[Rfam]
RNA sequence: CAGUGUUAUAGCUCUCUUAGAAUUGGUCUAGCAGAUUUUCCAGUUUUUAACAGAAAACCCCA
Numbered sequence: 001c002a003g004u005g006u007u008a009u010a011g012c013u014c015u016c017u018u019a020g021a022a023u024u025g026g027u028c029u030a031g032c033a034g035a036u037u038u039u040c041c042a043g044u045u046u047u048u049a050a051c052a053g054a055a056a057a058c059c060c061c062a
Stems, first nucleotide, its partner, number of pairs: 034059001036057005043051003
Rfam assigns this 62-nucleotide RNA from Propithecus coquereli to the family "U7 small nuclear RNA".
Rfam describes the family as follows. Animal histone pre-mRNAs are spliced by a different mechanism than nuclear pre-mRNAs and self-splicing introns. This processing involves the U7 snRNP, which contains only one RNA species: U7.
The match comes from Rfam's covariance-model search (47 bits).
A reference for the family is Spycher et al. (1994), "3' end processing of mouse histone pre-mRNA: evidence for additional base-pairing between U7 snRNA and pre-mRNA", Nucleic Acids Res.
Taxonomically the source falls in Propithecus (Eukaryota, Chordata, Craniata, Vertebrata).